[Rfam]
RNA sequence: CCGUGCUAGGUGGGGAAUUAGCGGUGCCCUGUACCCGCAAUCCGCUAUAGCGGGACUGAAUCCCUUCCUGAGGUAGAUUUGCUUUAAGGUCUGACUUAAGUAAGUGGUGUUGACGCUUGGGUCCUGCGCAACAGGAACCCGUGAACCCUGUCAGGUCCGGAAGGAAGCAGCAGUAAGCGGACACUUCUGUGUGCCGCGGGGUUGCCUGAGCCGAGCUAACUGCUUAAGUAACGCUUAGGGCAGUCUUAUCGACGGAAGGUGCACGG
Numbered sequence: 001c002c003g004u005g006c007u008a009g010g011u012g013g014g015g016a017a018u019u020a021g022c023g024g025u026g027c028c029c030u031g032u033a034c035c036c037g038c039a040a041u042c043c044g045c046u047a048u049a050g051c052g053g054g055a056c057u058g059a060a061u062c063c064c065u066u067c068c069u070g071a072g073g074u075a076g077a078u079u080u081g082c083u084u085u086a087a088g089g090u091c092u093g094a095c096u097u098a099a100g101u102a103a104g105u106g107g108u109g110u111u112g113a114c115g116c117u118u119g120g121g122u123c124c125u126g127c128g129c130a131a132c133a134g135g136a137a138c139c140c141g142u143g144a145a146c147c148c149u150g151u152c153a154g155g156u157c158c159g160g161a162a163g164g165a166a167g168c169a170g171c172a173g174u175a176a177g178c179g180g181a182c183a184c185u186u187c188u189g190u191g192u193g194c195c196g197c198g199g200g201g202u203u204g205c206c207u208g209a210g211c212c213g214a215g216c217u218a219a220c221u222g223c224u225u226a227a228g229u230a231a232c233g234c235u236u237a238g239g240g241c242a243g244u245c246u247u248a249u250c251g252a253c254g255g256a257a258g259g260u261g262c263a264c265g266g
Base pairs, nucleotide, nucleotide: 001266002265003264004263005262006261009057010056011055012030013029014028015027017025018024019023034054035053036052037051038050063259064258065257066256067255068254072250073249074248075247076246079243080242081241082240083239084238085237086236087235088234092230093229096227097226098225099224100223101222104220105219106217107216108215115211116210117209118208119207120206121205122204123200124199125198126197127196128195129191130190132189133188134187135186136185139180140179141178142177148173149172150171151170156165157164158163
The record is a 266-nucleotide sequence from Bacillus solimangrovi, which matches "Bacterial large signal recognition particle RNA" in Rfam. Gene Ontology terms of the family: SRP-dependent cotranslational protein targeting to membrane, signal sequence recognition and signal recognition particle, plasma membrane targeting. It is annotated as a non-coding RNA gene. A reference for the family is Rosenblad et al. (2003), "SRPDB: Signal Recognition Particle Database", Nucleic Acids Res. Lineage of the source: Bacteria > Bacillota > Bacilli > Caryophanales > Bacillus.